[Rfam]
RNA: Glycine riboswitch aptamer
RNA sequence: CGACAAGCCUCUGGAGAGACUCUCAGGGAGCGCCGAAGGGGAAAGCUAAAUUUAGUGAAACUCUCAGGUAAAAGGACAGGGGAUUUUAU
Numbered sequence: 001c002g003a004c005a006a007g008c009c010u011c012u013g014g015a016g017a018g019a020c021u022c023u024c025a026g027g028g029a030g031c032g033c034c035g036a037a038g039g040g041g042a043a044a045g046c047u048a049a050a051u052u053u054a055g056u057g058a059a060a061c062u063c064u065c066a067g068g069u070a071a072a073a074g075g076a077c078a079g080g081g082g083a084u085u086u087u088a089u
Stems, first nucleotide, its partner, number of pairs: 006084001008082006020030004032069003035065002039063003045056002